[Rfam]
This 107-nucleotide RNA from Rhodoferax koreensis belongs to the Rfam family "Glycine riboswitch aptamer". A search with the family's covariance model found it, with a score of 58 bits.
RNA sequence: GCGUUCCCCACUGGAGAGAAGCCUGCCCUGCCAAGGGCCGGCUCACCGAAGGAGCAAACCCACAUCGCUGGGCGAAUCUCUCAGGUAAAGCGGACAGCGGGGGCAGC
Numbered sequence: 001g002c003g004u005u006c007c008c009c010a011c012u013g014g015a016g017a018g019a020a021g022c023c024u025g026c027c028c029u030g031c032c033a034a035g036g037g038c039c040g041g042c043u044c045a046c047c048g049a050a051g052g053a054g055c056a057a058a059c060c061c062a063c064a065u066c067g068c069u070g071g072g073c074g075a076a077u078c079u080c081u082c083a084g085g086u087a088a089a090g091c092g093g094a095c096a097g098c099g100g101g102g103g104c105a106g107c
Stems, first nucleotide, its partner, number of pairs: 006102004011097003020043004045086003048082002052080003059072003